A member of the RNA family "MIR4374 microRNA precursor family" from Glycine max, 106 nucleotides long. Rfam links the family to the GO terms miRNA-mediated post-transcriptional gene silencing and RISC complex.
[Rfam]
RNA sequence: GGUGCUUACCUCAGCAACGUCUUUAAAAGUAGGCAUUCUAAGACGUUGCUGAAGUAAGCACCGUCUUUGAAUGCCUACUUUCAAAGACGUUGUUGAGGUAAGCACC
Numbered sequence: 001g002g003u004g005c006u007u008a009c010c011u012c013a014g015c016a017a018c019g020u021c022u023u024u025a026a027a028a029g030u031a032g033g034c035a036u037u038c039u040a041a042g043a044c045g046u047u048g049c050u051g052a053a054g055u056a057a058g059c060a061c062c063g064u065c066u067u068u069g070a071a072u073g074c075c076u077a078c079u080u081u082c083a084a085a086g087a088c089g090u091u092g093u094u095g096a097g098g099u100a101a102g103c104a105c106c
Stems, first nucleotide, its partner, number of pairs: 002105012015092010026081007034073005040067006047060004
Taxonomically the source falls in Glycine subgen. Soja (Eukaryota, Gunneridae, fabids, Fabales).